Annotation
Small nucleolar RNA SNORD87: an 81-nucleotide RNA from Ptilorrhoa leucosticta. Rfam links the family to the GO terms nucleolus and RNA processing. For this family Rfam cites "U87 RNA, a novel C/D box small nucleolar RNA from mammalian cells" (Gogolevskaya et al., Gene, 2002). By type it is a C/D-box small nucleolar RNA.
RNA sequence: GCUGGCAUAGUGAUGAUGACCCUUUGCCGUUUACCCAGCUGAGUGUUGUGAUGAGCAGUGUUGUAUAUCUGAUGUGCCAGC
Numbered sequence: 001g002c003u004g005g006c007a008u009a010g011u012g013a014u015g016a017u018g019a020c021c022c023u024u025u026g027c028c029g030u031u032u033a034c035c036c037a038g039c040u041g042a043g044u045g046u047u048g049u050g051a052u053g054a055g056c057a058g059u060g061u062u063g064u065a066u067a068u069c070u071g072a073u074g075u076g077c078c079a080g081c
Stems, first nucleotide, its partner, number of pairs: 001081007